[Rfam]
Overview
The record is a 79-nucleotide sequence from Alkaliphilus metalliredigens, which matches "Clostridiales-2 RNA" in Rfam. Rfam classes the family as a small RNA.
RNA sequence: AUACAUUGGGGAGUACAGAGGGGAUUCCCCUCUGUCGUAUUAAGGAGGGUGCUCAGGUCGUAAGACCGUCGAAGGGAAC
Numbered sequence: 001a002u003a004c005a006u007u008g009g010g011g012a013g014u015a016c017a018g019a020g021g022g023g024a025u026u027c028c029c030c031u032c033u034g035u036c037g038u039a040u041u042a043a044g045g046a047g048g049g050u051g052c053u054c055a056g057g058u059c060g061u062a063a064g065a066c067c068g069u070c071g072a073a074g075g076g077a078a079c
Stems, first nucleotide, its partner, number of pairs: 015035008056067004